[Rfam]
The record is a 78-nucleotide RNA from Cairina moschata, which matches "Small nucleolar RNA SNORD69" in Rfam. The base pairs follow the family's consensus structure. On this family, see Huttenhofer et al., EMBO J 2001: "RNomics: an experimental approach that identifies 201 candidates for novel, small, non-messenger RNAs in mouse".

RNA sequence: GACACAAAGCAUAUGAUGAGAAAACACUGAAACUGACUUUGUAUGAAGUGCAUUCAGUCCAACGCUGAGCUUUGUGGC
Numbered sequence: 001g002a003c004a005c006a007a008a009g010c011a012u013a014u015g016a017u018g019a020g021a022a023a024a025c026a027c028u029g030a031a032a033c034u035g036a037c038u039u040u041g042u043a044u045g046a047a048g049u050g051c052a053u054u055c056a057g058u059c060c061a062a063c064g065c066u067g068a069g070c071u072u073u074g075u076g077g078c
Base pairs, nucleotide, nucleotide: 001078003076004075005074006073007072008071009070010069
Dot-bracket structure: (.((((((((..........................................................)))))))).)
Source information: The source organism's lineage runs through Eukaryota, Metazoa, Craniata, Neognathae and Cairina. Its family is annotated with nucleolus and RNA processing in the Gene Ontology. From the family's description: snoRNA HBII-210 belongs to the C/D family of snoRNAs. It is the human orthologue of the mouse MBII-210 and is predicted to guide the 2'O-ribose methylation of large 28S rRNA on residue G4464.